RNA sequence: UGGGAUAUAGCCAAGCGGUAAGGCAGCGGGUUUUGAUCCCGUCAUUCCGAGGUUCAAAUCCUCGUAUCCCAG
Numbered sequence: 001u002g003g004g005a006u007a008u009a010g011c012c013a014a015g016c017g018g019u020a021a022g023g024c025a026g027c028g029g030g031u032u033u034u035g036a037u038c039c040c041g042u043c044a045u046u047c048c049g050a051g052g053u054u055c056a057a058a059u060c061c062u063c064g065u066a067u068c069c070c071a072g
Stems, first nucleotide, its partner, number of pairs: 001071007010024003026042005048064005